[Rfam]
Shown here is a 97-nucleotide RNA sequence from Desulforamulus reducens, a member of the family "TPP riboswitch aptamer (THI element)". Taxonomically the source falls in Desulforamulus reducens (Bacteria, Bacillati, Clostridia, Peptococcaceae). The match comes from Rfam's covariance-model search (69 bits). Pairs were carried over by alignment from the consensus structure, which is taken from published work.
RNA sequence: UUUGGUUCACAGGGGAGCGCAAGCUGAGAAAGGUAAGACCUGACCCUCAAAACCUGAUCUGGAUAAUACCAGCGAAGGGAGUGAUGUACACACAAGU
Numbered sequence: 001u002u003u004g005g006u007u008c009a010c011a012g013g014g015g016a017g018c019g020c021a022a023g024c025u026g027a028g029a030a031a032g033g034u035a036a037g038a039c040c041u042g043a044c045c046c047u048c049a050a051a052a053c054c055u056g057a058u059c060u061g062g063a064u065a066a067u068a069c070c071a072g073c074g075a076a077g078g079g080a081g082u083g084a085u086g087u088a089c090a091c092a093c094a095a096g097u
Stems, first nucleotide, its partner, number of pairs: 007084004011047004017024002031041004053078003059072004